[Rfam]
Source information:
Rfam assigns this 109-nucleotide RNA sequence from Caenorhabditis brenneri to the family "SL2 RNA". The base pairs follow the family's consensus structure, which is taken from published work. From the family's description: This family represents SL2 RNA. SL2 RNA is involved in trans splicing in lower eukaryotes. Trans-splicing is a form of RNA processing. The acquisition of a spliced leader from a SL RNA is a intra-molecular reaction which precisely joins exons derived from separately transcribed RNAs. Approximately 25% of C. elegans genes are organised into polycistronic transcription units and the presence of SL2 on an mRNA is an indication the the gene is in an operon. The family is grouped with related families in Rfam's "SL clan".
RNA sequence: GGUUUUAACCCUUUAACCAAGGUUAGCUGUCGUUUCGAACUCUCGAAAGAGUGUGUCGAAUAACUAAAAUGUUUGGAAAAGCUUCUUCGGGGUUAUCCGAAGGAGGCUA
Numbered sequence: 001g002g003u004u005u006u007a008a009c010c011c012u013u014u015a016a017c018c019a020a021g022g023u024u025a026g027c028u029g030u031c032g033u034u035u036c037g038a039a040c041u042c043u044c045g046a047a048a049g050a051g052u053g054u055g056u057c058g059a060a061u062a063a064c065u066a067a068a069a070u071g072u073u074u075g076g077a078a079a080a081g082c083u084u085c086u087u088c089g090g091g092g093u094u095a096u097c098c099g100a101a102g103g104a105g106g107c108u109a
Stems, first nucleotide, its partner, number of pairs: 007034002010029001013026001015024003036058003040053001042051003084106005091098002